[Rfam]
RNA: PreQ1 (pre queuosine) riboswitch aptamer
Organism: Lederbergia galactosidilytica
RNA sequence: GAGGACGUGGUUCGAAACCAUCCCACGAUAAAAAACUAAGGGGAG
Numbered sequence: 001g002a003g004g005a006c007g008u009g010g011u012u013c014g015a016a017a018c019c020a021u022c023c024c025a026c027g028a029u030a031a032a033a034a035a036c037u038a039a040g041g042g043g044a045g
Stems, first nucleotide, its partner, number of pairs: 006027005016037001